[Rfam]
RNA sequence: AGGCCCCUCCCUCCCCGCACAGCUCCUGCUCGCCCCUGCCACGUCAAAGGAGGCAGAAGGGGAGCCGGGAGCAGAGAGGGGACCU
Numbered sequence: 001a002g003g004c005c006c007c008u009c010c011c012u013c014c015c016c017g018c019a020c021a022g023c024u025c026c027u028g029c030u031c032g033c034c035c036c037u038g039c040c041a042c043g044u045c046a047a048a049g050g051a052g053g054c055a056g057a058a059g060g061g062g063a064g065c066c067g068g069g070a071g072c073a074g075a076g077a078g079g080g081g082a083c084c085u
Base pairs, nucleotide, nucleotide: 002084003083004081005080006079007078008077009076012075013074022072023071024070025069026068027067028066029064030063031062033061034060035059036056037055038054039053040052042050

Shown here is an 85-nucleotide RNA from Phyllostomus discolor, a member of the family "mir-3154 microRNA precursor family".
Pairs were carried over by alignment from the consensus structure, which was predicted with RNAalifold.
Rfam links the family to the GO terms miRNA-mediated post-transcriptional gene silencing and RISC complex.
The source organism's lineage runs through Eukaryota, Eumetazoa, Euteleostomi, Dipnotetrapodomorpha and Phyllostomus.